[Rfam]
RNA sequence: UCGGUUCCGGUUCACGCUGCGCUCCUCCGGGCGCCCGGCGACCCGGCGACC
Numbered sequence: 001u002c003g004g005u006u007c008c009g010g011u012u013c014a015c016g017c018u019g020c021g022c023u024c025c026u027c028c029g030g031g032c033g034c035c036c037g038g039c040g041a042c043c044c045g046g047c048g049a050c051c
Stems, first nucleotide, its partner, number of pairs: 003051003007046004015040005021034002
RNA: L31-Actinobacteria ribosomal protein leader
Organism: Cryptosporangium phraense